[Rfam]
Nucleotides: 400
Base pairs, nucleotide, nucleotide: 048083049082051080052079053078054077098219099218100217101216102215114212115211116210134184136183137182138181139180140179157170159168160167161166237253238252239251240250241249278381279380282377283308284307285306286305326372327371328370329369346365347364348363349362350361351360352359353358
Number, partner (000 for none) and nucleotide at each position: 001000a002000c003000a004000a005000c006000a007000a008000c009000a010000a011000u012000a013000a014000c015000a016000a017000g018000a019000c020000g021000u022000a023000c024000c025000a026000c027000c028000c029000a030000u031000a032000a033000u034000a035000a036000g037000a038000a039000c040000g041000a042000u043000u044000g045000a046000c047000a048083c049082g050000a051080c052079u053078c054077c055000a056000g057000c058000c059000u060000u061000a062000c063000a064000a065000g066000a067000a068000c069000a070000a071000c072000g073000a074000u075000g076000c077054g078053g079052a080051g081000a082049c083048g084000g085000g086000g087000c088000c089000a090000a091000c092000c093000g094000a095000u096000u097000u098219u099218u100217u101216u102215g103000g104000a105000g106000u107000a108000g109000a110000a111000a112000c113000a114212u115211g116210c117000c118000c119000g120000u121000c122000g123000g124000g125000c126000g127000a128000a129000g130000c131000c132000c133000g134184c135000a136183g137182c138181c139180a140179g141000g142000c143000c144000g145000a146000g147000a148000a149000c150000a151000a152000c153000a154000a155000a156000a157170c158000c159168g160167c161166c162000c163000c164000g165000a166161g167160g168159c169000a170157g171000u172000a173000c174000c175000c176000g177000a178000a179140c180139u181138g182137g183136u184134g185000g186000g187000u188000c189000g190000a191000c192000a193000c194000g195000a196000c197000c198000c199000a200000g201000g202000c203000g204000a205000u206000a207000u208000c209000a210116g211115c212114g213000a214000c215102c216101a217100a218099a219098g220000a221000a222000a223000u224000c225000c226000g227000u228000u229000u230000g231000c232000u233000a234000u235000u236000g237253g238252c239251u240250c241249c242000c243000c244000u245000g246000u247000u248000g249241g250240g251239g252238g253237c254000c255000a256000u257000c258000c259000c260000g261000g262000a263000g264000c265000c266000a267000a268000c269000g270000a271000g272000c273000c274000a275000a276000c277000c278381g279380g280000g281000a282377c283308g284307g285306g286305c287000a288000u289000a290000c291000a292000a293000c294000a295000a296000g297000a298000a299000c300000a301000a302000c303000a304000c305286g306285c307284c308283c309000g310000g311000a312000a313000c314000a315000g316000a317000a318000c319000a320000a321000g322000a323000a324000c325000a326372a327371c328370g329369c330000a331000c332000a333000c334000a335000c336000u337000u338000c339000g340000a341000u342000u343000u344000g345000a346365a347364a348363g349362g350361g351360a352359g353358c354000u355000u356000c357000g358353g359352c360351u361350c362349c363348c364347u365346u366000u367000c368000u369329g370328c371327g372326u373000u374000c375000g376000a377282g378000a379000g380279c381278c382000a383000c384000u385000c386000c387000g388000g389000c390000u391000u392000c393000g394000u395000a396000c397000a398000u399000c400000c
Pseudomonas sRNA CrcZ: a 400-nucleotide sequence from Azotobacter chroococcum. Lineage of the source: Bacteria > Gammaproteobacteria > Pseudomonadales > Pseudomonadaceae > Azotobacter chroococcum. For this family Rfam cites "Identification of 17 Pseudomonas aeruginosa sRNAs and prediction of sRNA-encoding genes in 10 diverse pathogens using the bioinformatic tool sRNAPredict2" (Livny et al., Nucleic Acids Res, 2006). Rfam classes the family as a small RNA.